Shown here is an 87-nucleotide RNA sequence from Eubacterium aggregans, a member of the family "c-di-GMP-I riboswitch aptamer". The organism belongs to Eubacterium, within Bacteria. A reference for the family is Weinberg et al. (2007), "Identification of 22 candidate structured RNAs in bacteria using the CMfinder comparative genomics pipeline", Nucleic Acids Res. The family's consensus secondary structure is taken from published work. A search with the family's covariance model found it, with a score of 61 bits.
[Rfam]
RNA sequence: AUAUCCAUUUGGCUAAGCUGUUGAAAAGCAGUGGCGCAAAGCUAUAGGGGCUUCUCUGCACUAGCAGAAUGCCAGCCAGUUGCACUU
Numbered sequence: 001a002u003a004u005c006c007a008u009u010u011g012g013c014u015a016a017g018c019u020g021u022u023g024a025a026a027a028g029c030a031g032u033g034g035c036g037c038a039a040a041g042c043u044a045u046a047g048g049g050g051c052u053u054c055u056c057u058g059c060a061c062u063a064g065c066a067g068a069a070u071g072c073c074a075g076c077c078a079g080u081u082g083c084a085c086u087u
Base pairs, nucleotide, nucleotide: 012037013036017032018031019030020029021028022027040081041080042079043078047077048076049073050072051071056067057066058065059064